[Rfam]
The family of this 210-nucleotide RNA sequence is "RT-2 RNA". The sequence is in the family's curated seed alignment. By type it is a small RNA.

RNA sequence: CACGCCCAGACCGAGUAGGAAACGAAAGCAGUGGCAAAAAGUAAAUAAGGAACACUUGACCUUCCUUUAUUGGUAAAUUUACACGCCGACAGCGAUUGACGGACGCUGCUUGCAUGGCAAGGACGGCGCAGCCUUGUUUCAUGUCAAUCGCUUAUGUACAUAGCGGCGCAAAAUAUUGUAUGCGGAGUGUUUAAUUUUAUGACAAGUGAA
Numbered sequence: 001c002a003c004g005c006c007c008a009g010a011c012c013g014a015g016u017a018g019g020a021a022a023c024g025a026a027a028g029c030a031g032u033g034g035c036a037a038a039a040a041g042u043a044a045a046u047a048a049g050g051a052a053c054a055c056u057u058g059a060c061c062u063u064c065c066u067u068u069a070u071u072g073g074u075a076a077a078u079u080u081a082c083a084c085g086c087c088g089a090c091a092g093c094g095a096u097u098g099a100c101g102g103a104c105g106c107u108g109c110u111u112g113c114a115u116g117g118c119a120a121g122g123a124c125g126g127c128g129c130a131g132c133c134u135u136g137u138u139u140c141a142u143g144u145c146a147a148u149c150g151c152u153u154a155u156g157u158a159c160a161u162a163g164c165g166g167c168g169c170a171a172a173a174u175a176u177u178g179u180a181u182g183c184g185g186a187g188u189g190u191u192u193a194a195u196u197u198u199a200u201g202a203c204a205a206g207u208g209a210a
Stems, first nucleotide, its partner, number of pairs: 004035003064073002081190004086185003090182001091152010105113002116138006156181005163174001